[Rfam]
RNA: Small nucleolar RNA SNORA74
RNA sequence: UCCAGUGGUAGUCAGCUGUCCAGAGCAAUACUAUGCCUGUGAUGGUGUUACACUGCUGGGAGAUAAAGAUCAGUCACUUCUGGCUGCAGUCGUCACCAUUCUUGAAAUGGCAGCAAGAAGUGGCAUUGUGCUUCCCUGAGAGCGCACUAAAGGGUCUCUUCUCCUCUUUAGUGCUAGUCUGGAAGCCUACACA
Numbered sequence: 001u002c003c004a005g006u007g008g009u010a011g012u013c014a015g016c017u018g019u020c021c022a023g024a025g026c027a028a029u030a031c032u033a034u035g036c037c038u039g040u041g042a043u044g045g046u047g048u049u050a051c052a053c054u055g056c057u058g059g060g061a062g063a064u065a066a067a068g069a070u071c072a073g074u075c076a077c078u079u080c081u082g083g084c085u086g087c088a089g090u091c092g093u094c095a096c097c098a099u100u101c102u103u104g105a106a107a108u109g110g111c112a113g114c115a116a117g118a119a120g121u122g123g124c125a126u127u128g129u130g131c132u133u134c135c136c137u138g139a140g141a142g143c144g145c146a147c148u149a150a151a152g153g154g155u156c157u158c159u160u161c162u163c164c165u166c167u168u169u170a171g172u173g174c175u176a177g178u179c180u181g182g183a184a185g186c187c188u189a190c191a192c193a
Base pairs, nucleotide, nucleotide: 001060002059003058004057005056006055007054008053009052011051012050015046016045017044018043019042020041021039022038023037068126073124074123075122076121077120078119079118080117081116083114084113085112086111087110089108090107093105094104095103128188130186131185132184133183134182135181144174145173146172148170149169150168151167152166153165154164